[Rfam]
RNA sequence: AUGAUUGUACGGGGAGAGAACGCAUUGGCGUCGCCGAAGGAGCAAAUGAUUACAUCAUGAAUCUCUCAGGCAAAAAGACUCGUACAGGACG
Numbered sequence: 001a002u003g004a005u006u007g008u009a010c011g012g013g014g015a016g017a018g019a020a021c022g023c024a025u026u027g028g029c030g031u032c033g034c035c036g037a038a039g040g041a042g043c044a045a046a047u048g049a050u051u052a053c054a055u056c057a058u059g060a061a062u063c064u065c066u067c068a069g070g071c072a073a074a075a076a077g078a079c080u081c082g083u084a085c086a087g088g089a090c091g
Stems, first nucleotide, its partner, number of pairs: 006086008020031004033071003036067002040065003046058002